[Rfam]
RNA sequence: AGGGGGAUACGCUCUGCAAUGGGAUGGGAUCCGAAGCCGCCUCGAGGGAUAAUACAGGCUCUCCCAUCCAACUCCUAUUCCGACACGUCCUCGUCGUGCAGAGUGGUAACGUGUGUCAUCACAUAUCCAAACUUGGGUACACGGGCUUGACCAAGGGGUUGCCCUUGGGCGGAUGGUGGCAUAUGGCAAACCAGGAGGGG
Numbered sequence: 001a002g003g004g005g006g007a008u009a010c011g012c013u014c015u016g017c018a019a020u021g022g023g024a025u026g027g028g029a030u031c032c033g034a035a036g037c038c039g040c041c042u043c044g045a046g047g048g049a050u051a052a053u054a055c056a057g058g059c060u061c062u063c064c065c066a067u068c069c070a071a072c073u074c075c076u077a078u079u080c081c082g083a084c085a086c087g088u089c090c091u092c093g094u095c096g097u098g099c100a101g102a103g104u105g106g107u108a109a110c111g112u113g114u115g116u117c118a119u120c121a122c123a124u125a126u127c128c129a130a131a132c133u134u135g136g137g138u139a140c141a142c143g144g145g146c147u148u149g150a151c152c153a154a155g156g157g158g159u160u161g162c163c164c165u166u167g168g169g170c171g172g173a174u175g176g177u178g179g180c181a182u183a184u185g186g187c188a189a190a191c192c193a194g195g196a197g198g199g200g
Stems, first nucleotide, its partner, number of pairs: 011104007022069008031058002073200004078196002081194001085097003089106002110185006117178004125174004133154004138149001162169002
Source information
This 200-nucleotide RNA from Anopheles gambiae belongs to the Rfam family "drz-agam-2-2 ribozyme". The base pairs follow the family's consensus structure, which is taken from published work. Taxonomically the source falls in Anopheles gambiae (Eukaryota, Ecdysozoa, Insecta, Aparaglossata).